Rfam assigns this 82-nucleotide sequence from Chrysochloris asiatica to the family "Small nucleolar RNA SNORD121A". It scores 89 bits against the family's covariance model. Pairs were carried over by alignment from the consensus structure, which was predicted with WAR.
RNA sequence: AUCCAGAAAACAAUGAUGUGGUCAUUCCCAAGCACAUAUCUGAUAAUUCCAUGUGGAAUUCAAUUGCUCUGAGUUUCUGGAC
Dot-bracket structure: .(((((.((((.............................................................))))))))).
Notes
For this family Rfam cites "snoSeeker: an advanced computational package for screening of guide and orphan snoRNA genes in the human genome" (Yang et al., Nucleic Acids Res, 2006).